[Rfam]
RNA: mir-194 microRNA precursor family
Organism: Mesocricetus auratus
RNA sequence: UGGAGUCAUCACAUGUAACAGCAACUCCAUGUGGACUGUGGACUGCCUUCCAGUGGAGAAGCUGUUACUCUUGAUGGCCAC
Numbered sequence: 001u002g003g004a005g006u007c008a009u010c011a012c013a014u015g016u017a018a019c020a021g022c023a024a025c026u027c028c029a030u031g032u033g034g035a036c037u038g039u040g041g042a043c044u045g046c047c048u049u050c051c052a053g054u055g056g057a058g059a060a061g062c063u064g065u066u067a068c069u070c071u072u073g074a075u076g077g078c079c080a081c
Base pairs, nucleotide, nucleotide: 009074010073011072015068016067017066018065019064020063021062022061025058026057027056028055029054030053032052033051034050